[Rfam]
RNA sequence: GAUUUACGUCCUACAUUCCACCGGAAUCUGUUGGAACAGAUCAGAUUUCAGUGGAAUGAAGAACAUGAACAU
Numbered sequence: 001g002a003u004u005u006a007c008g009u010c011c012u013a014c015a016u017u018c019c020a021c022c023g024g025a026a027u028c029u030g031u032u033g034g035a036a037c038a039g040a041u042c043a044g045a046u047u048u049c050a051g052u053g054g055a056a057u058g059a060a061g062a063a064c065a066u067g068a069a070c071a072u
Base pairs, nucleotide, nucleotide: 011061012060014058015057016056019053020052021051023049024048025047026046028044029043030042
The family of this 72-nucleotide sequence from Carassius auratus is "mir-205 microRNA precursor family". Pairs were carried over by alignment from the consensus structure, which was predicted with RNAalifold. The literature on the family includes a 2003 paper in Science by Lim et al., "Vertebrate microRNA genes".